Notes
Rfam assigns this 105-nucleotide RNA sequence from Paenalcaligenes hominis to the family "SAH (S-adenosyl-L-homocysteine) riboswitch aptamer".
RNA sequence: CAAUCUGAGGAGCGUUGCGACUUUGUCGAUGCCUAGCAUCCAAAGCCAGGCUCAGAUUUGGAACGUUGCUCACGUUUUUACCUAGAACAACGACGCUCACCUACC
Number, nucleotide and partner (000 for none) at each position: 001c000002a058003a057004u056005c055006u054007g053008a052009g000010g000011a000012g000013c000014g000015u000016u000017g000018c000019g000020a000021c045022u044023u043024u042025g041026u000027c000028g000029a000030u000031g000032c000033c000034u000035a000036g000037c000038a000039u000040c000041c025042a024043a023044a022045g021046c000047c000048a000049g000050g000051c000052u008053c007054a006055g005056a004057u003058u002059u000060g000061g000062a000063a000064c000065g000066u000067u000068g000069c000070u000071c000072a000073c000074g000075u000076u000077u000078u000079u000080a000081c000082c000083u000084a000085g000086a000087a000088c000089a000090a000091c000092g000093a000094c000095g000096c000097u000098c000099a000100c000101c000102u000103a000104c000105c000
On this family, see Wang et al., Mol Cell 2008: "Riboswitches that sense S-adenosylhomocysteine and activate genes involved in coenzyme recycling".